This 89-nucleotide sequence from Takifugu bimaculatus belongs to the Rfam family "mir-204 microRNA precursor family".
Rfam links the family to the GO terms miRNA-mediated post-transcriptional gene silencing and RISC complex.
[Rfam]
RNA sequence: ACAUGACCUGUGGACUUCCCUUUGUUAUCCUAUGCCUGGACUCACAAAAAGGGGCUGGGAAGGCAAAGGGUUGCCCAGUUGUCAUCCAG
Number, nucleotide and partner (000 for none) at each position: 001a000002c000003a000004u000005g000006a000007c000008c000009u000010g000011u000012g000013g000014a000015c000016u000017u000018c070019c069020c068021u067022u066023u000024g064025u063026u000027a000028u060029c059030c058031u057032a056033u000034g055035c054036c053037u052038g000039g000040a000041c000042u000043c000044a000045c000046a000047a000048a000049a000050a000051g000052g037053g036054g035055c034056u032057g031058g030059g029060a028061a000062g000063g025064c024065a000066a022067a021068g020069g019070g018071u000072u000073g000074c000075c000076c000077a000078g000079u000080u000081g000082u000083c000084a000085u000086c000087c000088a000089g000